[Rfam]
RNA sequence: ACCGACAAAGGCAAACCUGUUGAAAAGCAGGGGCGCAAAGCUAGAGGGCCUUACUAAAUGUAUCAUUUAGGUGGCAGCCAGUUACCGAAG
Numbered sequence: 001a002c003c004g005a006c007a008a009a010g011g012c013a014a015a016c017c018u019g020u021u022g023a024a025a026a027g028c029a030g031g032g033g034c035g036c037a038a039a040g041c042u043a044g045a046g047g048g049c050c051u052u053a054c055u056a057a058a059u060g061u062a063u064c065a066u067u068u069a070g071g072u073g074g075c076a077g078c079c080a081g082u083u084a085c086c087g088a089a090g
Stems, first nucleotide, its partner, number of pairs: 003087002011036002016031006034077001039083004046079002048075003
Shown here is a 90-nucleotide sequence from Anaerocolumna xylanovorans, a member of the family "c-di-GMP-I-GGC riboswitch aptamer". Its Rfam clan is "c-di-GMP_I riboswitch clan".